[Rfam]
RNA sequence: UGUGGGAUAUGAUGAUAUUUUUCGCCUUACCCGAAUGUAUCUACGAUACAUCAUGUGGGGUUGCGAAACAUGAUUUGCACGUCAGUCUGAUCCCUCC
Numbered sequence: 001u002g003u004g005g006g007a008u009a010u011g012a013u014g015a016u017a018u019u020u021u022u023c024g025c026c027u028u029a030c031c032c033g034a035a036u037g038u039a040u041c042u043a044c045g046a047u048a049c050a051u052c053a054u055g056u057g058g059g060g061u062u063g064c065g066a067a068a069c070a071u072g073a074u075u076u077g078c079a080c081g082u083c084a085g086u087c088u089g090a091u092c093c094c095u096c097c
Stems, first nucleotide, its partner, number of pairs: 002096001004094004